Description
This 491-nucleotide part of an RNA from Theileria parva belongs to the Rfam family "Eukaryotic large subunit ribosomal RNA". Lineage of the source: Eukaryota > Apicomplexa > Aconoidasida > Piroplasmida > Theileria.
RNA sequence: UAGAAUAAGGUAGAUAAGGGAAGUCGGCAAAAUGGAUCCGUAACUUCGGGACAAGGAUUGGCUCUGAGGGCCGGGCAGCAUGGGGCCCUUGGCGUUUCCUGAGCGCCUUUGUUUGGCUGGUUGCCCGUGAGGGUUUCCGGACUUGCAUGGGCGCUCUGGUAUUUGCCGAGGGUUGGCUCGCCUUCCCAGCUGUAGUGAACGGCUAACUCAGAACUGGAGCGGACAAGGGGAAUCCGACUGUUUAAUUAAAACAUAGCAUUGCGAUGGCUUGAAAAGGUGUUGACGCAAUGUGAUUUCUGCCCAGUGCUCUGAAUGUCAAAGUGAUGAAAUUCAACCAAGCGCGGGUAAACGGCGGGAGUAACUAUGACUCUCUUAAGGUAGCCAAAUGCCUCGUCAUCUAAUUAGUGACGCGCAUGAAUGGAUUAACGAGAUUCCCACUGUCCCUAUCUAUCAUCUAGCGAAACCACAGCCAAGGGAACGGGCUUGGCAAA
Numbered sequence: 001u002a003g004a005a006u007a008a009g010g011u012a013g014a015u016a017a018g019g020g021a022a023g024u025c026g027g028c029a030a031a032a033u034g035g036a037u038c039c040g041u042a043a044c045u046u047c048g049g050g051a052c053a054a055g056g057a058u059u060g061g062c063u064c065u066g067a068g069g070g071c072c073g074g075g076c077a078g079c080a081u082g083g084g085g086c087c088c089u090u091g092g093c094g095u096u097u098c099c100u101g102a103g104c105g106c107c108u109u110u111g112u113u114u115g116g117c118u119g120g121u122u123g124c125c126c127g128u129g130a131g132g133g134u135u136u137c138c139g140g141a142c143u144u145g146c147a148u149g150g151g152c153g154c155u156c157u158g159g160u161a162u163u164u165g166c167c168g169a170g171g172g173u174u175g176g177c178u179c180g181c182c183u184u185c186c187c188a189g190c191u192g193u194a195g196u197g198a199a200c201g202g203c204u205a206a207c208u209c210a211g212a213a214c215u216g217g218a219g220c221g222g223a224c225a226a227g228g229g230g231a232a233u234c235c236g237a238c239u240g241u242u243u244a245a246u247u248a249a250a251a252c253a254u255a256g257c258a259u260u261g262c263g264a265u266g267g268c269u270u271g272a273a274a275a276g277g278u279g280u281u282g283a284c285g286c287a288a289u290g291u292g293a294u295u296u297c298u299g300c301c302c303a304g305u306g307c308u309c310u311g312a313a314u315g316u317c318a319a320a321g322u323g324a325u326g327a328a329a330u331u332c333a334a335c336c337a338a339g340c341g342c343g344g345g346u347a348a349a350c351g352g353c354g355g356g357a358g359u360a361a362c363u364a365u366g367a368c369u370c371u372c373u374u375a376a377g378g379u380a381g382c383c384a385a386a387u388g389c390c391u392c393g394u395c396a397u398c399u400a401a402u403u404a405g406u407g408a409c410g411c412g413c414a415u416g417a418a419u420g421g422a423u424u425a426a427c428g429a430g431a432u433u434c435c436c437a438c439u440g441u442c443c444c445u446a447u448c449u450a451u452c453a454u455c456u457a458g459c460g461a462a463a464c465c466a467c468a469g470c471c472a473a474g475g476g477a478a479c480g481g482g483c484u485u486g487g488c489a490a491a
Stems, first nucleotide, its partner, number of pairs: 001457004009452008018443003035059005044049001060215002063212006069204005075193005081188004085173003089169004098159002101156008110147003115142001117140004123134004216220001228436007235428002239253003256291008267278004295422003299353003304350002306346004311342001314341003322333003354372006373377001393409005470487005

Pairs were carried over by alignment from the consensus structure, which is taken from published work. Rfam's curators put it in the seed alignment.